[Rfam]
RNA sequence: UUUGAGGAAGCAUUUUGCCUACUUGGACAUAAAGCGCGUCCUUGAGGGAGCGAUUUUUGUCCACGUAGGCAAAACGCCUCCUUAGGA
Numbered sequence: 001u002u003u004g005a006g007g008a009a010g011c012a013u014u015u016u017g018c019c020u021a022c023u024u025g026g027a028c029a030u031a032a033a034g035c036g037c038g039u040c041c042u043u044g045a046g047g048g049a050g051c052g053a054u055u056u057u058u059g060u061c062c063a064c065g066u067a068g069g070c071a072a073a074a075c076g077c078c079u080c081c082u083u084a085g086g087a
Stems, first nucleotide, its partner, number of pairs: 001086008010077002013074009024063006031056003035052003040047002

Shown here is an 87-nucleotide sequence from Gossypium trilobum, a member of the family "MIR7486 microRNA precursor family". The organism belongs to Gossypium, within Eukaryota. The base pairs follow the family's consensus structure, which was predicted with RNAalifold.